[Rfam]
Nucleotides: 081
Stems, first nucleotide, its partner, number of pairs: 001081002004078003
Number, partner (000 for none) and nucleotide at each position: 001081c002080c003000g004078u005077g006076a007000g008000a009000g010000g011000a012000a013000u014000g015000a016000u017000a018000u019000a020000u021000u022000a023000c024000u025000a026000u027000a028000a029000g030000g031000c032000u033000c034000u035000c036000a037000c038000a039000a040000u041000a042000c043000u044000g045000g046000c047000a048000u049000a050000c051000c052000u053000u054000g055000a056000u057000u058000c059000a060000g061000c062000a063000u064000c065000c066000g067000a068000g069000a070000u071000g072000g073000a074000c075000a076006u077005u078004a079000g080002g081001g